[Rfam]
RNA sequence: UUGAGGUGGAGUUCUGUUGUACACUCAGACUGUGGCUAUGGGAAGGUCAGUGCAUCACAGAACUUUGUCUCGAG
Numbered sequence: 001u002u003g004a005g006g007u008g009g010a011g012u013u014c015u016g017u018u019g020u021a022c023a024c025u026c027a028g029a030c031u032g033u034g035g036c037u038a039u040g041g042g043a044a045g046g047u048c049a050g051u052g053c054a055u056c057a058c059a060g061a062a063c064u065u066u067g068u069c070u071c072g073a074g
Stems, first nucleotide, its partner, number of pairs: 004070013022052004028048004
Shown here is a 74-nucleotide sequence from Sphenodon punctatus, a member of the family "mir-148/mir-152 microRNA precursor family". The match comes from Rfam's covariance-model search (75 bits). Its family is annotated with RISC complex and miRNA-mediated post-transcriptional gene silencing in the Gene Ontology. On this family, see Lagos-Quintana et al., Curr Biol 2002: "Identification of tissue-specific microRNAs from mouse". The family's consensus secondary structure was predicted with RNAalifold.